RNA sequence: UGGGAGCGCCAGAUCUUGGGCUUUGUCCCCAGUGCCCUGUGCUCCCGGGCUUGCGCUGUUGGAAUUGCGCUCUUGGUCGCACAGCUCCCU
Numbered sequence: 001u002g003g004g005a006g007c008g009c010c011a012g013a014u015c016u017u018g019g020g021c022u023u024u025g026u027c028c029c030c031a032g033u034g035c036c037c038u039g040u041g042c043u044c045c046c047g048g049g050c051u052u053g054c055g056c057u058g059u060u061g062g063a064a065u066u067g068c069g070c071u072c073u074u075g076g077u078c079g080c081a082c083a084g085c086u087c088c089c090u
Stems, first nucleotide, its partner, number of pairs: 002089005008082001010079001012077001015076002018073003022069001024067002026063002029061001030058006039051001041050003

The family of this 90-nucleotide RNA sequence from Nyctereutes procyonoides is "mir-8799 microRNA precursor family". Taxonomically the source falls in Nyctereutes (Eukaryota, Metazoa, Eumetazoa, Canidae). Gene Ontology terms of the family: miRNA-mediated post-transcriptional gene silencing and RISC complex. Its Rfam clan is "mir-8791 microRNA precursor clan".